[Rfam]
RNA sequence: GUUUAUGGGGACGUCCCGUCAAGGUAAAAUUCAAAGCCUUGUAGUAGAAUAGCAGUGUGGUGAGAGAUCUAAACAUUGAAAUCUAUUGACAAAGAUAUCGUUAGGAUAUCGAGCAAGUAUUCGGAUUAUAACAUCA
Numbered sequence: 001g002u003u004u005a006u007g008g009g010g011a012c013g014u015c016c017c018g019u020c021a022a023g024g025u026a027a028a029a030u031u032c033a034a035a036g037c038c039u040u041g042u043a044g045u046a047g048a049a050u051a052g053c054a055g056u057g058u059g060g061u062g063a064g065a066g067a068u069c070u071a072a073a074c075a076u077u078g079a080a081a082u083c084u085a086u087u088g089a090c091a092a093a094g095a096u097a098u099c100g101u102u103a104g105g106a107u108a109u110c111g112a113g114c115a116a117g118u119a120u121u122c123g124g125a126u127u128a129u130a131a132c133a134u135c136a
Stems, first nucleotide, its partner, number of pairs: 020041005048087005053078006062069002094110006113129001115127001
Description
Rfam assigns this 136-nucleotide sequence from Halobacteroides halobius to the family "Group II catalytic intron D1-D4-4". Group II introns are found in rRNA, tRNA and mRNA of organelles in fungi, plants and protists, and also in mRNA in bacteria. On this family, see Bonen and Vogel, Trends Genet 2001: "The ins and outs of group II introns". Gene Ontology term of the family: Group II intron splicing. NCBI's taxonomy places the organism under Bacteria, Clostridia, Halanaerobiales, Halobacteroides, Halobacteroides halobius.